[Rfam]
RNA sequence: CCUUUUGAGUGUCAUAUCAAACGUUAGUAGCUUCGGCAAGGAUGGACACGUUGAAGAAGGAA
Numbered sequence: 001c002c003u004u005u006u007g008a009g010u011g012u013c014a015u016a017u018c019a020a021a022c023g024u025u026a027g028u029a030g031c032u033u034c035g036g037c038a039a040g041g042a043u044g045g046a047c048a049c050g051u052u053g054a055a056g057a058a059g060g061a062a
Stems, first nucleotide, its partner, number of pairs: 001060005009049005022044003030037002
A member of the RNA family "RAGATH-18 RNA" from Niallia taxi, 62 nucleotides long. A search with the family's covariance model found it, with a score of 64 bits. Pairs were carried over by alignment from the consensus structure, which is taken from published work. Actinobacteria, Firmicutes, Fusobacteria, Thermotogae (1 example). The family's RNA type in Rfam is small RNA.